[Rfam]
RNA sequence: AAUAAAAAACAAGCGCCAGAACCCUGGUCCUUCAGGGUUGACGAGGAGAGGGAGUAUCGAUCAUUCGGCGGAUGCCCUCCGGCCCGGUCACGGCCGCAGCGUAGAACAAAACCAGGAGGCAACUCCCGGACCAAAGACUACAGGUGACCAA
Numbered sequence: 001a002a003u004a005a006a007a008a009a010c011a012a013g014c015g016c017c018a019g020a021a022c023c024c025u026g027g028u029c030c031u032u033c034a035g036g037g038u039u040g041a042c043g044a045g046g047a048g049a050g051g052g053a054g055u056a057u058c059g060a061u062c063a064u065u066c067g068g069c070g071g072a073u074g075c076c077c078u079c080c081g082g083c084c085c086g087g088u089c090a091c092g093g094c095c096g097c098a099g100c101g102u103a104g105a106a107c108a109a110a111a112c113c114a115g116g117a118g119g120c121a122a123c124u125c126c127c128g129g130a131c132c133a134a135a136g137a138c139u140a141c142a143g144g145u146g147a148c149c150a151a
Stems, first nucleotide, its partner, number of pairs: 020039008048079005057068004080096005100144001101141004112129002115126004